[Rfam]
RNA sequence: GCUUGAUCAAGGCCGAAUUCCUUGGCACCAGGAAGCGGGGGAACCACUUUGGGUGAAUUGAUCUCGUAACAGAGGGAUCAUAGGGGACUACCUUCUACCGAAUCCUUAAGCUAACCUCGCAGGCAACCGGAAGGGGUUUA
Dot-bracket structure: ...........(((...(((((.......)))))((((((..........(((.....(((((((........)))))))..((.(.........).))...))).........)))))).)))................
Numbered sequence: 001g002c003u004u005g006a007u008c009a010a011g012g013c014c015g016a017a018u019u020c021c022u023u024g025g026c027a028c029c030a031g032g033a034a035g036c037g038g039g040g041g042a043a044c045c046a047c048u049u050u051g052g053g054u055g056a057a058u059u060g061a062u063c064u065c066g067u068a069a070c071a072g073a074g075g076g077a078u079c080a081u082a083g084g085g086g087a088c089u090a091c092c093u094u095c096u097a098c099c100g101a102a103u104c105c106u107u108a109a110g111c112u113a114a115c116c117u118c119g120c121a122g123g124c125a126a127c128c129g130g131a132a133g134g135g136g137u138u139u140a
Stems, first nucleotide, its partner, number of pairs: 012124003018034005035120006051105003059080007083099002086096001
Shown here is a 140-nucleotide RNA from Paenibacillus dendrobii, a member of the family "c-di-AMP riboswitch aptamer (ydaO/yuaA leader)".